[Rfam]
RNA sequence: AUGAUGAAGUCGGGAGAGAUCGUGUGGUUAUGCGCGCGGCGCCGAAGGGGAGGCAGAAACUCUCAGGCAGAAGGACCGAUUUCGGACG
Numbered sequence: 001a002u003g004a005u006g007a008a009g010u011c012g013g014g015a016g017a018g019a020u021c022g023u024g025u026g027g028u029u030a031u032g033c034g035c036g037c038g039g040c041g042c043c044g045a046a047g048g049g050g051a052g053g054c055a056g057a058a059a060c061u062c063u064c065a066g067g068c069a070g071a072a073g074g075a076c077c078g079a080u081u082u083c084g085g086a087c088g
Stems, first nucleotide, its partner, number of pairs: 006083008020039004041068003044064002048062003
Shown here is an 88-nucleotide RNA from Eggerthella sp. CAG:368, a member of the family "Glycine riboswitch aptamer".
A search with the family's covariance model found it, with a score of 57 bits.
Taxonomically the source falls in Eggerthella (Bacteria, Bacillati, Coriobacteriia, Eggerthellaceae).
Pairs were carried over by alignment from the consensus structure.